[Rfam]
RNA sequence: GCCCGAGGACGACCUCGGGCGUUUUGCCUCAACAUGAAGGGACGACCCUU
Numbered sequence: 001g002c003c004c005g006a007g008g009a010c011g012a013c014c015u016c017g018g019g020c021g022u023u024u025u026g027c028c029u030c031a032a033c034a035u036g037a038a039g040g041g042a043c044g045a046c047c048c049u050u
Stems, first nucleotide, its partner, number of pairs: 001020008037050005
About this RNA:
The record is a 50-nucleotide RNA sequence from Mesorhizobium sp. YM1C-6-2, which matches "Guanidine-II riboswitch aptamer (mini-ykkC)" in Rfam. Rfam 15.1 lists 1,589 matches to the family in 1,229 species. From the family's description: Simpler in structure and has fewer highly conserved nucleotide positions than the ykkC-yxkD leader. On this family, see Sherlock et al., Biochemistry 2017: "Biochemical Validation of a Second Guanidine Riboswitch Class in Bacteria". Pairs were carried over by alignment from the consensus structure, which is taken from published work. The organism belongs to Mesorhizobium, within Bacteria.